The record is a 109-nucleotide RNA sequence from Marixanthomonas spongiae, which matches "6S-Flavo RNA" in Rfam. The family's consensus secondary structure is taken from published work. The source organism's lineage runs through Bacteria, Bacteroidota, Flavobacteriia, Flavobacteriaceae and Marixanthomonas. A search with the family's covariance model found it, with a score of 100 bits.

RNA sequence: ACUCAACACUAUCUCUUAUAAGAAGGGUGAGUUGAAGCUGUUAAAACGAGCCGUCUUUGAGCGGAUGUUUGACCAGUUUGUUAGCCCUAAACUUUUCUUUUAGGAGUUU
Numbered sequence: 001a002c003u004c005a006a007c008a009c010u011a012u013c014u015c016u017u018a019u020a021a022g023a024a025g026g027g028u029g030a031g032u033u034g035a036a037g038c039u040g041u042u043a044a045a046a047c048g049a050g051c052c053g054u055c056u057u058u059g060a061g062c063g064g065a066u067g068u069u070u071g072a073c074c075a076g077u078u079u080g081u082u083a084g085c086c087c088u089a090a091a092c093u094u095u096u097c098u099u100u101u102a103g104g105a106g107u108u109u
Stems, first nucleotide, its partner, number of pairs: 024088005035079005044070003051064004